Record summary
The family of this 105-nucleotide RNA from Lathyrus oleraceus is "Small nucleolar RNA Z107/R87". The literature on the family includes a 2001 paper in J Mol Biol by Barneche et al., "Identification of 66 box C/D snoRNAs in Arabidopsis thaliana: extensive gene duplications generated multiple isoforms predicting new ribosomal RNA 2'-O-methylation sites". Its family is annotated with RNA processing and nucleolus in the Gene Ontology. It scores 100 bits against the family's covariance model. The family's RNA type in Rfam is C/D-box small nucleolar RNA. Taxonomically the source falls in Lathyrus (Eukaryota, Embryophyta, Gunneridae, Hologalegina).
RNA sequence: GAUUGCAGUGAUGACUCCGUUAAAUUCAAGCUCAACAGACCAGAAUGCAGUGUUUUCUCUACGAGAUUGCUUUGCGUGUCGAUAACCCCACUGAACUGAGCGAUC
Number, nucleotide and partner (000 for none) at each position: 001g105002a104003u103004u102005g101006c100007a000008g000009u000010g000011a000012u000013g000014a000015c000016u000017c000018c000019g000020u000021u000022a000023a000024a000025u000026u000027c000028a000029a000030g000031c000032u000033c000034a000035a000036c000037a000038g000039a000040c000041c000042a000043g000044a000045a000046u000047g000048c000049a000050g000051u000052g000053u000054u000055u000056u000057c000058u000059c000060u000061a000062c000063g000064a000065g000066a000067u000068u000069g000070c000071u000072u000073u000074g000075c000076g000077u000078g000079u000080c000081g000082a000083u000084a000085a000086c000087c000088c000089c000090a000091c000092u000093g000094a000095a000096c000097u000098g000099a000100g006101c005102g004103a003104u002105c001